RNA: mir-183 microRNA precursor family
Organism: Eptatretus burgeri
RNA sequence: CCCUGUUUAUGGCACUGGUAGAAUUCACUGCACCUGGUCUCCAGUGAUCUACCACAGGCCAUUCACAGUG
Numbered sequence: 001c002c003c004u005g006u007u008u009a010u011g012g013c014a015c016u017g018g019u020a021g022a023a024u025u026c027a028c029u030g031c032a033c034c035u036g037g038u039c040u041c042c043a044g045u046g047a048u049c050u051a052c053c054a055c056a057g058g059c060c061a062u063u064c065a066c067a068g069u070g
Base pairs, nucleotide, nucleotide: 003068004067005066006065009062010061011060012059013058016054017053018052022050025047026046027045028044029043030042